[Rfam]
RNA sequence: UGCCCCGGCCCGCCCCCCUGUGGCCGGGAUUGGCGGCUCGCGCAUUACCCCCCCCUAGCGCGAGCCGCCCCUU
Numbered sequence: 001u002g003c004c005c006c007g008g009c010c011c012g013c014c015c016c017c018c019u020g021u022g023g024c025c026g027g028g029a030u031u032g033g034c035g036g037c038u039c040g041c042g043c044a045u046u047a048c049c050c051c052c053c054c055c056u057a058g059c060g061c062g063a064g065c066c067g068c069c070c071c072u073u
Stems, first nucleotide, its partner, number of pairs: 002030001004028007032069012
Rfam assigns this 73-nucleotide RNA from Corynebacterium vitaeruminis to the family "6C RNA". The family's consensus secondary structure is taken from published work. Rfam classes the family as a cis-regulatory element. Rfam links the family to the GO term sporulation. For this family Rfam cites "Identification of 22 candidate structured RNAs in bacteria using the CMfinder comparative genomics pipeline" (Weinberg et al., Nucleic Acids Res, 2007).